[Rfam]
RNA sequence: GUUGUCUUGACGGGGUGCUGGGACCGCGAUUCUGGUUGUAGAACGACCAUGCGGUACCGGCUGAGAUUGCGAGUGCCUUUGGAUGGCGAAGCUCAAUUGAAGAGUUUCGCCGGCCAGAGGCCACGGCAGAACCCGCAGACCUGAUCCGGUUAAUACCGGCGUAGGGAUUCGAGAUAGGGUGUUCG
Number, nucleotide and partner (000 for none) at each position: 001g000002u000003u000004g000005u000006c173007u172008u171009g170010a169011c135012g134013g133014g132015g000016u129017g061018c060019u059020g058021g057022g000023a000024c000025c000026g000027c000028g000029a000030u000031u000032c000033u000034g000035g000036u000037u000038g000039u000040a000041g000042a000043a000044c000045g000046a000047c000048c000049a000050u000051g000052c000053g000054g000055u000056a000057c021058c020059g019060g018061c017062u000063g000064a000065g000066a000067u000068u128069g127070c126071g000072a000073g000074u000075g000076c000077c000078u000079u000080u000081g000082g000083a000084u000085g000086g000087c000088g000089a000090a000091g000092c000093u000094c000095a000096a000097u000098u000099g000100a000101a000102g000103a000104g000105u000106u000107u000108c000109g000110c000111c000112g000113g000114c000115c000116a000117g000118a000119g000120g000121c000122c000123a000124c000125g000126g070127c069128a068129g016130a000131a000132c014133c013134c012135g011136c000137a000138g000139a000140c165141c164142u163143g162144a000145u000146c159147c158148g157149g156150u000151u000152a000153a000154u000155a000156c149157c148158g147159g146160c000161g000162u143163a142164g141165g140166g000167a000168u000169u010170c009171g008172a007173g006174a000175u000176a000177g000178g000179g000180u000181g000182u000183u000184c000185g000

Annotation:
The record is a 185-nucleotide sequence from Hydrocarboniclastica marina, which matches "TPP riboswitch aptamer (THI element)" in Rfam. It scores 59 bits against the family's covariance model. The family has 115 seed sequences and 16,130 matches in Rfam 15.1.